A member of the RNA family "pan motif" from Domibacillus mangrovi, 105 nucleotides long.
RNA sequence: CAGGCGGUAUCAAGUGAGCUGCACCGGUUAAACAAGUGAAAAUAAAAUUUCACCUAAUAAAAUAAGACGUAAACUGCCUUGAUCCAUACGGACAGGGACAGAGGG
Numbered sequence: 001c002a003g004g005c006g007g008u009a010u011c012a013a014g015u016g017a018g019c020u021g022c023a024c025c026g027g028u029u030a031a032a033c034a035a036g037u038g039a040a041a042a043u044a045a046a047a048u049u050u051c052a053c054c055u056a057a058u059a060a061a062a063u064a065a066g067a068c069g070u071a072a073a074c075u076g077c078c079u080u081g082a083u084c085c086a087u088a089c090g091g092a093c094a095g096g097g098a099c100a101g102a103g104g105g
Stems, first nucleotide, its partner, number of pairs: 001026001003024001004022005010017002074101003077097005083092003
Source information: Rfam classes the family as a cis-regulatory element. Lineage of the source: Bacteria > Bacillati > Bacillota > Bacilli > Domibacillus.